[Rfam]
RNA sequence: AUGGCGGGCCGUGACUGGCGCUGAGGUGGAGCACCACCGGGGAGCGGUCCGCAGAACCUGCUGCCGUGCGCCUGGGCGAACCGA
Numbered sequence: 001a002u003g004g005c006g007g008g009c010c011g012u013g014a015c016u017g018g019c020g021c022u023g024a025g026g027u028g029g030a031g032c033a034c035c036a037c038c039g040g041g042g043a044g045c046g047g048u049c050c051g052c053a054g055a056a057c058c059u060g061c062u063g064c065c066g067u068g069c070g071c072c073u074g075g076g077c078g079a080a081c082c083g084a
Stems, first nucleotide, its partner, number of pairs: 004052009015041002017072005026037004062078004